[Rfam]
RNA: Small nucleolar RNA SNORD82
RNA sequence: AGCACAAAUGAUGAUUAUAAGGGACUUAAUACUGAAAUAUGAUGCCGCUUUUGAGCAAAAACUGAUGUGC
Numbered sequence: 001a002g003c004a005c006a007a008a009u010g011a012u013g014a015u016u017a018u019a020a021g022g023g024a025c026u027u028a029a030u031a032c033u034g035a036a037a038u039a040u041g042a043u044g045c046c047g048c049u050u051u052u053g054a055g056c057a058a059a060a061a062c063u064g065a066u067g068u069g070c
Base pairs, nucleotide, nucleotide: 002070003069004068005067006066